RNA sequence: UCUGGCGAUGAUGAGCCACUUGCCCUCGCUGAGAACGAAGUUCGGUAAUGAGACUCUGUUACGGACUCAAGUUCUGAGCCAGA
Numbered sequence: 001u002c003u004g005g006c007g008a009u010g011a012u013g014a015g016c017c018a019c020u021u022g023c024c025c026u027c028g029c030u031g032a033g034a035a036c037g038a039a040g041u042u043c044g045g046u047a048a049u050g051a052g053a054c055u056c057u058g059u060u061a062c063g064g065a066c067u068c069a070a071g072u073u074c075u076g077a078g079c080c081a082g083a
Stems, first nucleotide, its partner, number of pairs: 001083006
RNA: Small nucleolar RNA SNORD103/SNORD85